Rfam assigns this 112-nucleotide RNA from Paenibacillus albiflavus to the family "PyrR binding site". NCBI's taxonomy places the organism under Bacteria, Bacillati, Bacilli, Paenibacillaceae, Paenibacillus. It scores 57 bits against the family's covariance model. The family's consensus secondary structure is taken from published work. This family represents the PyrR binding site and terminator structure. This RNA structure is found upstream of a variety of genes involved in pyrimidine biosynthesis and transport. It is annotated as a cis-regulatory element. On this family, see Bonner et al., Nucleic Acids Res 2001: "Molecular recognition of pyr mRNA by the Bacillus subtilis attenuation regulatory protein PyrR".
RNA sequence: AUAUCCUUUAAUACGGUCCAGAGAGGCUGAAAAGGCUACUUGAUAUUGUAAGGCUCAUAAUAUCUAUGUUUUUUCAUGCCCUUUUGACCUCUGUGCCAGAAGGGCUUUUUAU
Numbered sequence: 001a002u003a004u005c006c007u008u009u010a011a012u013a014c015g016g017u018c019c020a021g022a023g024a025g026g027c028u029g030a031a032a033a034g035g036c037u038a039c040u041u042g043a044u045a046u047u048g049u050a051a052g053g054c055u056c057a058u059a060a061u062a063u064c065u066a067u068g069u070u071u072u073u074u075c076a077u078g079c080c081c082u083u084u085u086g087a088c089c090u091c092u093g094u095g096c097c098a099g100a101a102g103g104g105c106u107u108u109u110u111a112u
Stems, first nucleotide, its partner, number of pairs: 003037001005035005014029005042073002045070001047068004052063001055060001076107001078105009088095001